[Rfam]
RNA sequence: AGGCAUUCGACCUUGCUUGACUAUACUCAUGGACAGGCAGGGGGGACAGUGUAUGCAAGAGUAUUUGGAGUUCAUGCCAGCUCUAGCCAGCUCAAUCAGUGGCUGGAUAAAUUGCAACACUCCAACACUC
Numbered sequence: 001a002g003g004c005a006u007u008c009g010a011c012c013u014u015g016c017u018u019g020a021c022u023a024u025a026c027u028c029a030u031g032g033a034c035a036g037g038c039a040g041g042g043g044g045g046a047c048a049g050u051g052u053a054u055g056c057a058a059g060a061g062u063a064u065u066u067g068g069a070g071u072u073c074a075u076g077c078c079a080g081c082u083c084u085a086g087c088c089a090g091c092u093c094a095a096u097c098a099g100u101g102g103c104u105g106g107a108u109a110a111a112u113u114g115c116a117a118c119a120c121u122c123c124a125a126c127a128c129u130c
Stems, first nucleotide, its partner, number of pairs: 003056004008051001011042009067123004072119001075116003087106005
Dot-bracket structure: ..((((.(..(((((((((..............)))))))))........).))))..........((((.(..(((.........(((((..........))))).......)))..))))).......
Shown here is a 130-nucleotide sequence from Tupaia belangeri, a member of the family "Small nucleolar RNA SNORA58". Pairs were carried over by alignment from the consensus structure, which was predicted with PFOLD. A reference for the family is Huttenhofer et al. (2001), "RNomics: an experimental approach that identifies 201 candidates for novel, small, non-messenger RNAs in mouse", EMBO J. Rfam links the family to the GO terms RNA processing and nucleolus. Rfam's curators write: ACA52 is a member of the H/ACA class of snoRNA that guide the sites of modification of uridines to pseudouridines. The family's RNA type in Rfam is H/ACA-box small nucleolar RNA.